[Rfam]
RNA: Glycine riboswitch aptamer
Organism: Cohnella thailandensis
RNA sequence: AUGAAGGCAACGGGAGAGAUCGCCCAGGGCAACACGGAGGCGGCGCCGAAGGAGUAACCCUCGGGUUCGAGGAGAAUCUCUCAGGCAAAAGGACCUUUGCCGGACG
Numbered sequence: 001a002u003g004a005a006g007g008c009a010a011c012g013g014g015a016g017a018g019a020u021c022g023c024c025c026a027g028g029g030c031a032a033c034a035c036g037g038a039g040g041c042g043g044c045g046c047c048g049a050a051g052g053a054g055u056a057a058c059c060c061u062c063g064g065g066u067u068c069g070a071g072g073a074g075a076a077u078c079u080c081u082c083a084g085g086c087a088a089a090a091g092g093a094c095c096u097u098u099g100c101c102g103g104a105c106g
Stems, first nucleotide, its partner, number of pairs: 006101005012095002020043004045086003048082002052080003059072005